The family of this 307-nucleotide RNA sequence from Mola mola is "Nuclear RNase P".
On this family, see Frank and Pace, Annu Rev Biochem 1998: "Ribonuclease P: unity and diversity in a tRNA processing ribozyme".
Rfam describes the family as follows. Ribonuclease P (RNase P) is a ubiquitous endoribonuclease, found in archaea, bacteria and eukarya as well as chloroplasts and mitochondria. Its best characterised activity is the generation of mature 5'-ends of tRNAs by cleaving the 5'-leader elements of precursor-tRNAs. Cellular RNase Ps are ribonucleoproteins.
The organism belongs to Mola, within Eukaryota.
[Rfam]
RNA sequence: GUGGGCGGAAGCUCAUUGUAGAGGUCACAUACGGAGUGCUAGUCACUCAACCAAUCAUCUCGGGGAAGGUCUGAGACAAGAGCCAAUAGUUGUCCUUGCGGGACAUCACCUGACUCGGGUGAGCGAGUGAACAGACAAAAUGGGUCAAGUGUGCAGUUCUCGCAGGAGAAACCAGAUGGUGCUAUUUCCCAGCGCCGCUGGCGGAUGUGACGCACACUGACUUGGAAUCGCUCGCGGCUGGCGGAUGAGUUCGAUGUAUGAGGUGGAGUACGUCUCCAGAACCCAAUUCAGACUACUCUCCCCCCAC
Numbered sequence: 001g002u003g004g005g006c007g008g009a010a011g012c013u014c015a016u017u018g019u020a021g022a023g024g025u026c027a028c029a030u031a032c033g034g035a036g037u038g039c040u041a042g043u044c045a046c047u048c049a050a051c052c053a054a055u056c057a058u059c060u061c062g063g064g065g066a067a068g069g070u071c072u073g074a075g076a077c078a079a080g081a082g083c084c085a086a087u088a089g090u091u092g093u094c095c096u097u098g099c100g101g102g103a104c105a106u107c108a109c110c111u112g113a114c115u116c117g118g119g120u121g122a123g124c125g126a127g128u129g130a131a132c133a134g135a136c137a138a139a140a141u142g143g144g145u146c147a148a149g150u151g152u153g154c155a156g157u158u159c160u161c162g163c164a165g166g167a168g169a170a171a172c173c174a175g176a177u178g179g180u181g182c183u184a185u186u187u188c189c190c191a192g193c194g195c196c197g198c199u200g201g202c203g204g205a206u207g208u209g210a211c212g213c214a215c216a217c218u219g220a221c222u223u224g225g226a227a228u229c230g231c232u233c234g235c236g237g238c239u240g241g242c243g244g245a246u247g248a249g250u251u252c253g254a255u256g257u258a259u260g261a262g263g264u265g266g267a268g269u270a271c272g273u274c275u276c277c278a279g280a281a282c283c284c285a286a287u288u289c290a291g292a293c294u295a296c297u298c299u300c301c302c303c304c305c306a307c
Stems, first nucleotide, its partner, number of pairs: 001307004007301003012262005021061004034048005071291005081239004091105005106122006123235007144221003264278005